[Rfam]
RNA sequence: UGGACAGGGGGGUCUCUGCUCUCGCGGCAGGGCCUGUCCGACAAGGCCGCGCGCUCAGCGCGGCAGUGGUUGUCGCUCGGGGGUGAUCGCCG
Numbered sequence: 001u002g003g004a005c006a007g008g009g010g011g012g013u014c015u016c017u018g019c020u021c022u023c024g025c026g027g028c029a030g031g032g033c034c035u036g037u038c039c040g041a042c043a044a045g046g047c048c049g050c051g052c053g054c055u056c057a058g059c060g061c062g063g064c065a066g067u068g069g070u071u072g073u074c075g076c077u078c079g080g081g082g083g084u085g086a087u088c089g090c091c092g
Stems, first nucleotide, its partner, number of pairs: 001040008014032007046064007
About this RNA:
Rfam assigns this 92-nucleotide RNA sequence from Streptomyces zagrosensis to the family "che1 RNA". It is annotated as a small RNA. It scores 88 bits against the family's covariance model. Pairs were carried over by alignment from the consensus structure, which is taken from published work.